[Rfam]
RNA sequence: AUAAAAAUUAAACACAUUACUUGUAUAAGCUCAUAAUGAGGUUGAGCGUUUCUACCAGCUGCCGUAAACAGUUGAUUAUAAGUAUGCUUAGAAAUUGG
Numbered sequence: 001a002u003a004a005a006a007a008u009u010a011a012a013c014a015c016a017u018u019a020c021u022u023g024u025a026u027a028a029g030c031u032c033a034u035a036a037u038g039a040g041g042u043u044g045a046g047c048g049u050u051u052c053u054a055c056c057a058g059c060u061g062c063c064g065u066a067a068a069c070a071g072u073u074g075a076u077u078a079u080a081a082g083u084a085u086g087c088u089u090a091g092a093a094a095u096u097g098g
Base pairs, nucleotide, nucleotide: 018084019083020082021081022080023079024078025077029047030046031045032044033043056074057073058072059071060070061069
RNA: Purine riboswitch aptamer
Organism: Clostridium tyrobutyricum